[Rfam]
RNA: Singlet oxygen resistance RNA X
RNA sequence: AACCCGCGCAUGUCCGGGUCAUGACAUGCACCUCCCUGUUGGACUUGGCCGGGCUUUAUGCCCGGUCUUUUUU
Numbered sequence: 001a002a003c004c005c006g007c008g009c010a011u012g013u014c015c016g017g018g019u020c021a022u023g024a025c026a027u028g029c030a031c032c033u034c035c036c037u038g039u040u041g042g043a044c045u046u047g048g049c050c051g052g053g054c055u056u057u058a059u060g061c062c063c064g065g066u067c068u069u070u071u072u073u
Stems, first nucleotide, its partner, number of pairs: 008029007047067008